Vertebrate telomerase RNA: a 343-nucleotide RNA from Stegastes partitus. The family is grouped with related families in Rfam's "Telomerase clan". It scores 107 bits against the family's covariance model. Telomerase is a ribonucleoprotein reverse transcriptase that synthesises telomeric DNA. Telomerase RNAs differ greatly in sequence and structure between vertebrates, ciliates and yeasts, but they share a 5' pseudoknot structure close to the template sequence. Taxonomically the source falls in Stegastes (Eukaryota, Euteleostomi, Actinopteri, Percomorphaceae). The family's RNA type in Rfam is non-coding RNA gene. Its family is annotated with telomere maintenance via telomerase, telomerase catalytic core complex and telomerase activity in the Gene Ontology. The family has 37 seed sequences and 523 matches in Rfam 15.1.
RNA sequence: UCUUCGCGGGGUGUCUCUUCUAACCCUAAAUACGGGCCGCCUCCUGUACUCAUCGUUUGUUGUUUUCUCGUUUCUGGCUUUCAGCAAACUACGGGAGGUUUUGAAGUAGCGCUGGACGCGUCUCGGAACCAAAAAAAAAAAAGCCAGGACUAUCACCCUGUCGUGCUCAGUCUCCCGUCAGAAACACCGCGACCGUGGUCAGCCCGGCUGCCGCGAAGAGUUCGUCUCUGUCGCUCCGGUGUCUUCAUGGAGGGAGUCUGUUUAUCUGAGCAUAUUAAAACUGAGCAGGGUCACUCUGUCGGACCUCCAGUGGUCCGGUUAGACAGCCUGAGCUCAAACAAAC
Numbered sequence: 001u002c003u004u005c006g007c008g009g010g011g012u013g014u015c016u017c018u019u020c021u022a023a024c025c026c027u028a029a030a031u032a033c034g035g036g037c038c039g040c041c042u043c044c045u046g047u048a049c050u051c052a053u054c055g056u057u058u059g060u061u062g063u064u065u066u067c068u069c070g071u072u073u074c075u076g077g078c079u080u081u082c083a084g085c086a087a088a089c090u091a092c093g094g095g096a097g098g099u100u101u102u103g104a105a106g107u108a109g110c111g112c113u114g115g116a117c118g119c120g121u122c123u124c125g126g127a128a129c130c131a132a133a134a135a136a137a138a139a140a141a142a143g144c145c146a147g148g149a150c151u152a153u154c155a156c157c158c159u160g161u162c163g164u165g166c167u168c169a170g171u172c173u174c175c176c177g178u179c180a181g182a183a184a185c186a187c188c189g190c191g192a193c194c195g196u197g198g199u200c201a202g203c204c205c206g207g208c209u210g211c212c213g214c215g216a217a218g219a220g221u222u223c224g225u226c227u228c229u230g231u232c233g234c235u236c237c238g239g240u241g242u243c244u245u246c247a248u249g250g251a252g253g254g255a256g257u258c259u260g261u262u263u264a265u266c267u268g269a270g271c272a273u274a275u276u277a278a279a280a281c282u283g284a285g286c287a288g289g290g291u292c293a294c295u296c297u298g299u300c301g302g303a304c305c306u307c308c309a310g311u312g313g314u315c316c317g318g319u320u321a322g323a324c325a326g327c328c329u330g331a332g333c334u335c336a337a338a339c340a341a342a343c
Base pairs, nucleotide, nucleotide: 006161007160008159009158010157011156012155013154040098041097042096043095044094055089056088057087058086059085060084061083062082073148074147075146076145077144078143079141080140081139166270167269168268169267170266172256173255174254175253176252178250179249180248182245185241186240187239188238189237194215195214196213197212198211200210201209202208203207217229218228219227220226283335284334285333286332288329289328290327291326296322297321298320302315303314304313305312